[Rfam]
RNA sequence: AGGCACGUAGCUCAGUGGGAGAGCACUACCCUGACACGGUAGGGGUCGGCGGUUCAAUCCCGCCCGUGCCUA
Numbered sequence: 001a002g003g004c005a006c007g008u009a010g011c012u013c014a015g016u017g018g019g020a021g022a023g024c025a026c027u028a029c030c031c032u033g034a035c036a037c038g039g040u041a042g043g044g045g046u047c048g049g050c051g052g053u054u055c056a057a058u059c060c061c062g063c064c065c066g067u068g069c070c071u072a
Stems, first nucleotide, its partner, number of pairs: 001071007010024004026042005048064005
RNA: tRNA